[Rfam]
RNA sequence: GGAGGGGUAGCGAAGUGGCUAAACGCGGGUGGCUGUAACCCACUUCCUUACGGUUCGGGGGUUCGAAUCCCUCCCCCUCCA
Numbered sequence: 001g002g003a004g005g006g007g008u009a010g011c012g013a014a015g016u017g018g019c020u021a022a023a024c025g026c027g028g029g030u031g032g033c034u035g036u037a038a039c040c041c042a043c044u045u046c047c048u049u050a051c052g053g054u055u056c057g058g059g060g061g062u063u064c065g066a067a068u069c070c071c072u073c074c075c076c077c078u079c080c081a
Stems, first nucleotide, its partner, number of pairs: 001080007010026003028044005057073005
A member of the RNA family "tRNA" from Mycoplasma capricolum, 81 nucleotides long. Lineage of the source: Bacteria > Bacillati > Mycoplasmatota > Mycoplasmataceae > Mycoplasma. The base pairs follow the family's consensus structure, which is taken from published work. By type it is a transfer RNA.